[Rfam]
The record is a 98-nucleotide sequence from Tautonia plasticadhaerens, which matches "Bacterial small signal recognition particle RNA" in Rfam. The match comes from Rfam's covariance-model search (74 bits). The signal recognition particle (SRP) is a universally conserved ribonucleoprotein involved in the co-translational targeting of proteins to membranes. NCBI's taxonomy places the organism under Bacteria, Planctomycetota, Planctomycetia, Isosphaerales, Tautonia.
RNA sequence: GGGGGGGACCCGGGCAAUGGAGGCGCGUGAACCUGGUCAGGGCGGGAACGCAGCAGCCAUAAGCGCGUCCUUCAUGUGCCCGGGAGCACCUCCCCGGC
Numbered sequence: 001g002g003g004g005g006g007g008a009c010c011c012g013g014g015c016a017a018u019g020g021a022g023g024c025g026c027g028u029g030a031a032c033c034u035g036g037u038c039a040g041g042g043c044g045g046g047a048a049c050g051c052a053g054c055a056g057c058c059a060u061a062a063g064c065g066c067g068u069c070c071u072u073c074a075u076g077u078g079c080c081c082g083g084g085a086g087c088a089c090c091u092c093c094c095c096g097g098c
Base pairs, nucleotide, nucleotide: 004095005094006093007092008091009084010083011082012081013080014079015076017075018074019073020072021071022070023068024067025066026065027064028063034059035058036057037056042051043050044049